[Rfam]
RNA sequence: UGGUGCCAGUGAUGAUUACAGAGCUCGUAAAAAUGGUGAAUUCUGGAUGAGCGCACUCGCGUGCGUGCUGAUAUCCCUCUCUGAUCAGUUCGUCUGAGGCACGA
Numbered sequence: 001u002g003g004u005g006c007c008a009g010u011g012a013u014g015a016u017u018a019c020a021g022a023g024c025u026c027g028u029a030a031a032a033a034u035g036g037u038g039a040a041u042u043c044u045g046g047a048u049g050a051g052c053g054c055a056c057u058c059g060c061g062u063g064c065g066u067g068c069u070g071a072u073a074u075c076c077c078u079c080u081c082u083g084a085u086c087a088g089u090u091c092g093u094c095u096g097a098g099g100c101a102c103g104a
Base pairs, nucleotide, nucleotide: 003102004101005100006099007098
The record is a 104-nucleotide sequence from Oryza brachyantha, which matches "Small nucleolar RNA Z188" in Rfam. Rfam 15.1 lists 104 matches to the family in 25 species. The organism belongs to Oryza, within Eukaryota. It is annotated as a C/D-box small nucleolar RNA. Rfam links the family to the GO terms RNA processing and nucleolus. The match comes from Rfam's covariance-model search (70 bits).